About this RNA: Group II catalytic intron D1-D4-6: a 182-nucleotide sequence from delta proteobacterium NaphS2. Lineage of the source: Bacteria > delta/epsilon subdivisions > Deltaproteobacteria. Rfam 15.1 lists 1,617 matches to the family in 661 species. The literature on the family includes a 2001 paper in Trends Genet by Bonen and Vogel, "The ins and outs of group II introns".
[Rfam]
RNA sequence: ACCGAGUGUUGCGUGGUGCCGGGGUAACCCGGGCUGCGAAGCGUACACAGGGAACCUGUAGGCCGUGUGAUAGAGCCUCGAAAGUUUUUGUAGCGGAAGCCGACGCCGUUCAACCAGCGGAAGGCAACAUCCUGUUCACUUGUCAGCAAGGGGUGGCAGGGUUCCGCCGGGGUCAAAGAGCA
Numbered sequence: 001a002c003c004g005a006g007u008g009u010u011g012c013g014u015g016g017u018g019c020c021g022g023g024g025u026a027a028c029c030c031g032g033g034c035u036g037c038g039a040a041g042c043g044u045a046c047a048c049a050g051g052g053a054a055c056c057u058g059u060a061g062g063c064c065g066u067g068u069g070a071u072a073g074a075g076c077c078u079c080g081a082a083a084g085u086u087u088u089u090g091u092a093g094c095g096g097a098a099g100c101c102g103a104c105g106c107c108g109u110u111c112a113a114c115c116a117g118c119g120g121a122a123g124g125c126a127a128c129a130u131c132c133u134g135u136u137c138a139c140u141u142g143u144c145a146g147c148a149a150g151g152g153g154u155g156g157c158a159g160g161g162u163u164c165c166g167c168c169g170g171g172g173u174c175a176a177a178g179a180g181c182a
Base pairs, nucleotide, nucleotide: 002051003050006048007047008046009045010043011042012038013037014036015035016034019032020031021030022029023028073174075173076172077171078170079169080168093167094166095165096164097163098162099125100124101123104119105118106117130161131160132159133158134157135156137155138154139152140151141150